[Rfam]
RNA sequence: AAGCCUUAAACUUAUGAAUCAGGAAGAGAAUGACUCAGUGUGACACCGGGGUCCUCCCUGCUAACGUGAGAUGAAAUGUGUGAGCAGGCAAAGGUCACCCCUAGGGGGACUUCGCCUGCUUUGCAGGAUGCCUGGGAGCUGUGAUCCGCCAU
Numbered sequence: 001a002a003g004c005c006u007u008a009a010a011c012u013u014a015u016g017a018a019u020c021a022g023g024a025a026g027a028g029a030a031u032g033a034c035u036c037a038g039u040g041u042g043a044c045a046c047c048g049g050g051g052u053c054c055u056c057c058c059u060g061c062u063a064a065c066g067u068g069a070g071a072u073g074a075a076a077u078g079u080g081u082g083a084g085c086a087g088g089c090a091a092a093g094g095u096c097a098c099c100c101c102u103a104g105g106g107g108g109a110c111u112u113c114g115c116c117u118g119c120u121u122u123g124c125a126g127g128a129u130g131c132c133u134g135g136g137a138g139c140u141g142u143g144a145u146c147c148g149c150c151a152u
Stems, first nucleotide, its partner, number of pairs: 004023003008019001032053005038047001054070003058066001087150003093146006101136002104133003108129001111127002114124002
The family of this 152-nucleotide sequence from Suricata suricatta is "U12 minor spliceosomal RNA". The organism belongs to Suricata, within Eukaryota. It is annotated as a spliceosomal small nuclear RNA. Pairs were carried over by alignment from the consensus structure.